The record is a 115-nucleotide sequence from Corynebacterium falsenii, which matches "TPP riboswitch aptamer (THI element)" in Rfam.
A search with the family's covariance model found it, with a score of 56 bits.
NCBI's taxonomy places the organism under Bacteria, Actinomycetota, Mycobacteriales, Corynebacteriaceae, Corynebacterium.
Nucleotides: 115
Stems, first nucleotide, its partner, number of pairs: 007102001009100002011066004017033005041058004072096003077090004
Number, partner (000 for none) and nucleotide at each position: 001000a002000a003000g004000a005000c006000c007102g008000a009100a010099c011066a012065c013064g014063g015000g016000a017033g018032c019031u020030c021029g022000a023000u024000g025000g026000c027000a028000a029021c030020g031019a032018g033017c034000u035000g036000a037000g038000a039000u040000c041058c042057g043056c044055g045000c046000u047000g048000a049000a050000a051000c052000c053000c054000g055044c056043g057042c058041g059000c060000c061000a062000a063014c064013c065012g066011u067000u068000u069000g070000a071000a072096c073095c074094u075000g076000u077090c078089u079088g080087g081000u082000u083000a084000g085000c086000a087080c088079c089078a090077g091000c092000g093000a094074a095073g096072g097000a098000a099010g100009u101000a102007u103000c104000a105000g106000g107000a108000g109000u110000g111000u112000c113000c114000c115000u